[Rfam]
RNA: Bacillaceae-1 RNA
Organism: Bacillus sp. SJS
RNA sequence: UAGUAAGGAGGUUCUGCUAAAGACGCGGCCUCCUGCCGCAACGCAGAACUGACCUGCAUCGUGCAGG
Numbered sequence: 001u002a003g004u005a006a007g008g009a010g011g012u013u014c015u016g017c018u019a020a021a022g023a024c025g026c027g028g029c030c031u032c033c034u035g036c037c038g039c040a041a042c043g044c045a046g047a048a049c050u051g052a053c054c055u056g057c058a059u060c061g062u063g064c065a066g067g
Base pairs, nucleotide, nucleotide: 011049012048013047014046015045016044017043025039026038027037028036029035053067054066055065056064057063